Rfam assigns this 269-nucleotide RNA from Sphenodon punctatus to the family "Small Cajal body specific RNA 6". Rfam 15.1 lists 1,309 matches to the family in 627 species. The literature on the family includes a 2002 paper in EMBO J by Darzacq et al., "Cajal body-specific small nuclear RNAs: a novel class of 2'-O-methylation and pseudouridylation guide RNAs". The family's RNA type in Rfam is small Cajal body RNA. U88 is small Cajal body specific RNA (scaRNA). scaRNAs are a novel class of small nuclear RNAs which localise to the Cajal bodies. The base pairs follow the family's consensus structure, which is taken from published work.
[Rfam]
RNA sequence: GGUCUGUGAUGACUAGUAAAAGGUCUGACUGCCCAAAAAAUUAUGCUUCCUUAUCCUCUGUACUCCCAGCAGUAGCCUCUCCUAUCAUGUUCCAGCAGUGCAAUGAUGGGGAAAGUGUUUGCUGACAAGUUGUGAUGUGUUCAGCUUGUGUCGGCCUAGAGUACCAGGUGGACACAGUUGAAAUCGCUAUCCUACAAAACCAGCAAAAGGAGUUUGAGGGUUGGGGAUCAUACUUUGGGCAAAUGAUCUCAGAUUUUCUAACUGAGACC
Numbered sequence: 001g002g003u004c005u006g007u008g009a010u011g012a013c014u015a016g017u018a019a020a021a022g023g024u025c026u027g028a029c030u031g032c033c034c035a036a037a038a039a040a041u042u043a044u045g046c047u048u049c050c051u052u053a054u055c056c057u058c059u060g061u062a063c064u065c066c067c068a069g070c071a072g073u074a075g076c077c078u079c080u081c082c083u084a085u086c087a088u089g090u091u092c093c094a095g096c097a098g099u100g101c102a103a104u105g106a107u108g109g110g111g112a113a114a115g116u117g118u119u120u121g122c123u124g125a126c127a128a129g130u131u132g133u134g135a136u137g138u139g140u141u142c143a144g145c146u147u148g149u150g151u152c153g154g155c156c157u158a159g160a161g162u163a164c165c166a167g168g169u170g171g172a173c174a175c176a177g178u179u180g181a182a183a184u185c186g187c188u189a190u191c192c193u194a195c196a197a198a199a200c201c202a203g204c205a206a207a208a209g210g211a212g213u214u215u216g217a218g219g220g221u222u223g224g225g226g227a228u229c230a231u232a233c234u235u236u237g238g239g240c241a242a243a244u245g246a247u248c249u250c251a252g253a254u255u256u257u258c259u260a261a262c263u264g265a266g267a268c269c
Base pairs, nucleotide, nucleotide: 001269002268003267004266038249040247041246042245047227048226049225050224051223053221054220063212064211065210066209067124068123069122070121071120072119081110082109083108084107085106086105087104088103090100132192134191135190136189137187138186139185147176148175149174150173151172152171154169155168156167157166